[Rfam]
RNA sequence: AUCCUAUACAGAUGUAUCAACGCAAGACAGUUGAGCAUUUCCCUGUAGGACAAAGUUUGCCAGAAGCUUUGAUAAUAAGUCUUGUUGUGUGGCUACGGUCGAAACAAGGUGAGUCAGAGUGGAACUAGGUUAGCCGCAAGACCUUGGGUUGAGAACCUCUAAAAUUGAGCUAGAGUAAGUCUAGUUGCGGCUUA
Numbered sequence: 001a002u003c004c005u006a007u008a009c010a011g012a013u014g015u016a017u018c019a020a021c022g023c024a025a026g027a028c029a030g031u032u033g034a035g036c037a038u039u040u041c042c043c044u045g046u047a048g049g050a051c052a053a054a055g056u057u058u059g060c061c062a063g064a065a066g067c068u069u070u071g072a073u074a075a076u077a078a079g080u081c082u083u084g085u086u087g088u089g090u091g092g093c094u095a096c097g098g099u100c101g102a103a104a105c106a107a108g109g110u111g112a113g114u115c116a117g118a119g120u121g122g123a124a125c126u127a128g129g130u131u132a133g134c135c136g137c138a139a140g141a142c143c144u145u146g147g148g149u150u151g152a153g154a155a156c157c158u159c160u161a162a163a164a165u166u167g168a169g170c171u172a173g174a175g176u177a178a179g180u181c182u183a184g185u186u187g188c189g190g191c192u193u194a
Stems, first nucleotide, its partner, number of pairs: 002050007010040006017034005022028001066120008080109007091100002127144005133191006139165001146159003150155001170184005